[Rfam]
Record summary
The family of this 126-nucleotide sequence from Erwinia sp. 198 is "Phenylalanine leader peptide". It scores 61 bits against the family's covariance model. The family's RNA type in Rfam is cis-regulatory leader. A reference for the family is Zurawski et al. (1978), "Nucleotide sequence of the leader region of the phenylalanine operon of Escherichia coli", Proc Natl Acad Sci U S A. Gene Ontology term of the family: cellular amino acid metabolic process.
RNA sequence: CAACGCAUUAUGACCGCGAAUUUCCGUUUCUUUUUUUACUUUAGCACCUGAACAUCGGGGGCUUGUGCGCAAAGAAAAGAAACGAAAAAUCGCGCUGAAAGCCUCCCUCGUGGAGGCUUUUUUGUU
Numbered sequence: 001c002a003a004c005g006c007a008u009u010a011u012g013a014c015c016g017c018g019a020a021u022u023u024c025c026g027u028u029u030c031u032u033u034u035u036u037u038a039c040u041u042u043a044g045c046a047c048c049u050g051a052a053c054a055u056c057g058g059g060g061g062c063u064u065g066u067g068c069g070c071a072a073a074g075a076a077a078a079g080a081a082a083c084g085a086a087a088a089a090u091c092g093c094g095c096u097g098a099a100a101g102c103c104u105c106c107c108u109c110g111u112g113g114a115g116g117c118u119u120u121u122u123u124g125u126u
Base pairs, nucleotide, nucleotide: 016093017092018091019090021088022087023086025084026083027082028081029080030079031078032077033076034075036073037072045057061068062067098120099119100118101117102116103115104114105113106112